[Rfam]
RNA sequence: AAGAGAAAAAGGGAGCCAGUUCUGUGUCUCCUGGUUUAGAAGAACAUUGAGGUAAAGCAAAAAAUCAAUGGCCGAGCUAUCUUUUCGGUCGUAUCUCUUUUUAUUGGCGAUUCGAUUGUUGCUUGUCCACAU
Dot-bracket structure: ......(((...(((.((......)).)))....)))................................((.((((..(((......(((((...(......)...)))))..))).....)))).))....
A member of the RNA family "Small nucleolar RNA snoR111" from Carya illinoinensis, 132 nucleotides long. The family's consensus secondary structure was predicted with WAR. On this family, see Marker et al., Curr Biol 2002: "Experimental RNomics: identification of 140 candidates for small non-messenger RNAs in the plant Arabidopsis thaliana". NCBI's taxonomy places the organism under Eukaryota, Streptophytina, Embryophyta, Spermatophyta, Carya.